[Rfam]
RNA sequence: GUAAGCAGGAGGCCAGGGCAUGGCAGGGAGAGCUGCGGGGCCGUCGGAGGGGCCCCAGUGUCUGAGCCCUGUCCUCUGGCAG
Numbered sequence: 001g002u003a004a005g006c007a008g009g010a011g012g013c014c015a016g017g018g019c020a021u022g023g024c025a026g027g028g029a030g031a032g033c034u035g036c037g038g039g040g041c042c043g044u045c046g047g048a049g050g051g052g053c054c055c056c057a058g059u060g061u062c063u064g065a066g067c068c069c070u071g072u073c074c075u076c077u078g079g080c081a082g
Base pairs, nucleotide, nucleotide: 005080006079008077009076010075011074012073014071015070016069017068018067019066028063030061032059033058034057035056038055039054040053041052042051
Background:
Shown here is an 82-nucleotide RNA from Theropithecus gelada, a member of the family "mir-1233 microRNA precursor family". It scores 88 bits against the family's covariance model. Gene Ontology terms of the family: miRNA-mediated post-transcriptional gene silencing and RISC complex.